[Rfam]
RNA sequence: GGUUCGGGAGCAGACCGGUGGGACGGGCUGCAUGUAUGGAACCUGCCCCCGGUUUCGCAAGCGGCGAUGCCCCGUGACCCCGACGGUGCGCG
Numbered sequence: 001g002g003u004u005c006g007g008g009a010g011c012a013g014a015c016c017g018g019u020g021g022g023a024c025g026g027g028c029u030g031c032a033u034g035u036a037u038g039g040a041a042c043c044u045g046c047c048c049c050c051g052g053u054u055u056c057g058c059a060a061g062c063g064g065c066g067a068u069g070c071c072c073c074g075u076g077a078c079c080c081c082g083a084c085g086g087u088g089c090g091c092g
Stems, first nucleotide, its partner, number of pairs: 001043005010031004015026003065092002069089002072086003